[Rfam]
RNA sequence: UACUUGUUAGAAGGUUACUUGUUAGUUCAGGACCUCGUUAUUUCUUGCCUGAACUUUGCAGUAGCCUCCUAACUGGUCUC
Numbered sequence: 001u002a003c004u005u006g007u008u009a010g011a012a013g014g015u016u017a018c019u020u021g022u023u024a025g026u027u028c029a030g031g032a033c034c035u036c037g038u039u040a041u042u043u044c045u046u047g048c049c050u051g052a053a054c055u056u057u058g059c060a061g062u063a064g065c066c067u068c069c070u071a072a073c074u075g076g077u078c079u080c
Stems, first nucleotide, its partner, number of pairs: 002077003006073005012067008024055008
Rfam assigns this 80-nucleotide sequence from Equus caballus to the family "mir-872 microRNA precursor family". Gene Ontology terms of the family: RISC complex and miRNA-mediated post-transcriptional gene silencing. Lineage of the source: Eukaryota > Metazoa > Craniata > Theria > Equus. On this family, see Chiang et al., Genes Dev 2010: "Mammalian microRNAs: experimental evaluation of novel and previously annotated genes".